[Rfam]
RNA sequence: AGCUUAUCAAGAAAGGAGGAGGGAAAUGGCCCUACGAUACCUUAGCAACCAUCUCUACCAGUUAGAGAAAGGUGCUGCAUCCAUCCGGUAAUACCGGAAAGAUAAGUC
Dot-bracket structure: .(((((((....((((....(((..[[[[))).......))))((((.((.((((.........))))..))))))...(]]]](((((...)))))..)))))))).
The record is a 108-nucleotide RNA sequence from Chitinophaga silvatica, which matches "SAM riboswitch aptamer (S box leader)" in Rfam. Lineage of the source: Bacteria > Pseudomonadati > Chitinophagia > Chitinophagaceae > Chitinophaga. The match comes from Rfam's covariance-model search (78 bits).